[Rfam]
RNA: Histone 3' UTR stem-loop
RNA sequence: CCAACGGCUCUUUUAAGAGCCACCCACAUUACUGAAAAAGAGCAA
Numbered sequence: 001c002c003a004a005c006g007g008c009u010c011u012u013u014u015a016a017g018a019g020c021c022a023c024c025c026a027c028a029u030u031a032c033u034g035a036a037a038a039a040g041a042g043c044a045a
Stems, first nucleotide, its partner, number of pairs: 006021006